The family of this 122-nucleotide sequence from Aromatoleum aromaticum is "Burkholderia RNA 11". By type it is a small RNA. Lineage of the source: Bacteria > Pseudomonadota > Betaproteobacteria > Rhodocyclaceae > Aromatoleum aromaticum.
[Rfam]
RNA sequence: GCAACCUCCGUUUCACCCGCGAAGACCGUACCGUGUUCCCCGCAGUGCUCGCGAUCUCGUGGUUCUGGUUCUACGGCGCGCUGCUGCUGUCGCAGUUCCCCGGCUAUGCGAAGGACGUCCUG
Numbered sequence: 001g002c003a004a005c006c007u008c009c010g011u012u013u014c015a016c017c018c019g020c021g022a023a024g025a026c027c028g029u030a031c032c033g034u035g036u037u038c039c040c041c042g043c044a045g046u047g048c049u050c051g052c053g054a055u056c057u058c059g060u061g062g063u064u065c066u067g068g069u070u071c072u073a074c075g076g077c078g079c080g081c082u083g084c085u086g087c088u089g090u091c092g093c094a095g096u097u098c099c100c101c102g103g104c105u106a107u108g109c110g111a112a113g114g115a116c117g118u119c120c121u122g
Stems, first nucleotide, its partner, number of pairs: 010049001012047001014045001017042001019040001021038003025034002051121001053119003057115002060112001065103001067099002071095002074092005080087002

Co-purified with Hfq, expression confirmed by Northern blot. The literature on the family includes a 2013 paper in Genomics by Ramos et al., "Experimental identification of small non-coding regulatory RNAs in the opportunistic human pathogen Burkholderia cenocepacia J2315".